Description: Yersinia sRNA 251: a 196-nucleotide RNA from Sodalis sp. TME1. The match comes from Rfam's covariance-model search (137 bits). A reference for the family is Nuss et al. (2015), "Transcriptomic profiling of Yersinia pseudotuberculosis reveals reprogramming of the Crp regulon by temperature and uncovers Crp as a master regulator of small RNAs", PLoS Genet.
[Rfam]
RNA sequence: CGUAGGCGCUCAGGGUGCGCUGACACAGCGCUGACCGCACGCAGUCCUGCUGGCUGAAACGAAUGAUAGCGAUCAUGUCAUCAUCCUCCUGGAACCGUUCCAGCGCGUCCGCCAGCCCGGAUUUUACCCCGCGCGGCAAAUCGCAUUGCGUCACGUCGCCGUUAACGAUGACCGUGACAUUCUCGCCCAACCGGGU
Numbered sequence: 001c002g003u004a005g006g007c008g009c010u011c012a013g014g015g016u017g018c019g020c021u022g023a024c025a026c027a028g029c030g031c032u033g034a035c036c037g038c039a040c041g042c043a044g045u046c047c048u049g050c051u052g053g054c055u056g057a058a059a060c061g062a063a064u065g066a067u068a069g070c071g072a073u074c075a076u077g078u079c080a081u082c083a084u085c086c087u088c089c090u091g092g093a094a095c096c097g098u099u100c101c102a103g104c105g106c107g108u109c110c111g112c113c114a115g116c117c118c119g120g121a122u123u124u125u126a127c128c129c130c131g132c133g134c135g136g137c138a139a140a141u142c143g144c145a146u147u148g149c150g151u152c153a154c155g156u157c158g159c160c161g162u163u164a165a166c167g168a169u170g171a172c173c174g175u176g177a178c179a180u181u182c183u184c185g186c187c188c189a190a191c192c193g194g195g196u
Base pairs, nucleotide, nucleotide: 002054003053005051006050007049008048015040016039017038018037019036061078063076064075065074066073067072086115087114090111091110096105097104098103116195117194118193119192120191122190124189129136130135140169141168142167143166147161148160174186175185176184177183
Pairs were carried over by alignment from the consensus structure, which was predicted with RNAfold. It is annotated as an antisense RNA. NCBI's taxonomy places the organism under Bacteria, Pseudomonadota, Gammaproteobacteria, Bruguierivoracaceae, Sodalis.